[Rfam]
RNA sequence: AGUUGGCUUAAUCUCAGCUGGCAACUGUGAGAUGUCUUUAUCAUCCCUCACAGAGGUCUCUGGGAUUAUGCUAAAC
Number, nucleotide and partner (000 for none) at each position: 001a000002g000003u074004u073005g072006g071007c070008u000009u068010a067011a066012u065013c064014u063015c062016a061017g060018c000019u000020g058021g057022c056023a000024a000025c000026u052027g051028u050029g049030a048031g047032a000033u000034g000035u000036c000037u000038u000039u000040a000041u000042c000043a000044u000045c000046c000047c031048u030049c029050a028051c027052a026053g000054a000055g000056g022057u021058c020059u000060c017061u016062g015063g014064g013065a012066u011067u010068a009069u000070g007071c006072u005073a004074a003075a000076c000